The family of this 129-nucleotide RNA sequence from Mesembrinibis cayennensis is "Small nucleolar RNA SNORA65". The base pairs follow the family's consensus structure, which was predicted with RNAalifold. By type it is an H/ACA-box small nucleolar RNA. U65 belongs to the H/ACA class of snoRNAs which are thought to guide the sites of modification of uridines to pseudouridines. Rfam links the family to the GO terms nucleolus and RNA processing. It scores 93 bits against the family's covariance model.
RNA sequence: CCCGCCACUGUGCCUGUCGUGUCAUGCAUUGACCGGUACAGCCCAGAGGUGAGCUGACAGAAAAUGCCAACUUAGGAAACAGAGUUGCUCUUCUUGUGGGUAACUUUGUGCCGAAGUCCGGGGACAGGC
Numbered sequence: 001c002c003c004g005c006c007a008c009u010g011u012g013c014c015u016g017u018c019g020u021g022u023c024a025u026g027c028a029u030u031g032a033c034c035g036g037u038a039c040a041g042c043c044c045a046g047a048g049g050u051g052a053g054c055u056g057a058c059a060g061a062a063a064a065u066g067c068c069a070a071c072u073u074a075g076g077a078a079a080c081a082g083a084g085u086u087g088c089u090c091u092u093c094u095u096g097u098g099g100g101u102a103a104c105u106u107u108g109u110g111c112c113g114a115a116g117u118c119c120g121g122g123g124a125c126a127g128g129c
Base pairs, nucleotide, nucleotide: 005049006048008046009045010044018036021033023031024030065122067121068120070117071116072115075112076111080108081107082106083105084104085103088100089099090098